[Rfam]
RNA: Lysine riboswitch aptamer
Organism: Ruminococcus sp. YE71
RNA sequence: UGAACAGAUAGAGGUGCGGCAACGAACAGUAGCCCUGAGUAAGAACGUGCGUAUCCCGAACGUGCGGCUCUGCGGCAAAAGGCAAUGCCGCCGAAGCUCAGCGCACGGGGAGCUGCUGCUGACCGCCUGCCGAACAGGUUUGCGGUUGUCAUCAUGCUUUGUGAUGGAGUGCUAUCGGCAUU
Numbered sequence: 001u002g003a004a005c006a007g008a009u010a011g012a013g014g015u016g017c018g019g020c021a022a023c024g025a026a027c028a029g030u031a032g033c034c035c036u037g038a039g040u041a042a043g044a045a046c047g048u049g050c051g052u053a054u055c056c057c058g059a060a061c062g063u064g065c066g067g068c069u070c071u072g073c074g075g076c077a078a079a080a081g082g083c084a085a086u087g088c089c090g091c092c093g094a095a096g097c098u099c100a101g102c103g104c105a106c107g108g109g110g111a112g113c114u115g116c117u118g119c120u121g122a123c124c125g126c127c128u129g130c131c132g133a134a135c136a137g138g139u140u141u142g143c144g145g146u147u148g149u150c151a152u153c154a155u156g157c158u159u160u161g162u163g164a165u166g167g168a169g170u171g172c173u174a175u176c177g178g179c180a181u182u
Stems, first nucleotide, its partner, number of pairs: 007176005016091006024083001032076003036072002095120003099115001104110001121147006129139003149167007